c-di-GMP-I riboswitch aptamer: an 83-nucleotide RNA sequence from Shewanella sp. W3-18-1.
The base pairs follow the family's consensus structure, which is taken from published work.
[Rfam]
Nucleotides: 083
Stems, first nucleotide, its partner, number of pairs: 012037002017032006040077004045073003048068003052061003
Number, partner (000 for none) and nucleotide at each position: 001000c002000u003000g004000a005000c006000g007000a008000a009000c010000a011000g012037g013036u014000a015000c016000a017032c018031c019030c020029g021028u022027u023000g024000u025000g026000a027022g028021a029020c030019g031018g032017g033000g034000u035000c036013g037012c038000a039000a040077a041076g042075c043074u044000u045073c046072g047071g048068g049067u050066c051000u052061u053060g054059a055000u056000u057000u058000u059054u060053u061052a062000u063000u064000a065000a066050g067049a068048u069000a070000g071047c072046c073045g074043g075042g076041u077040u078000g079000c080000c081000g082000a083000a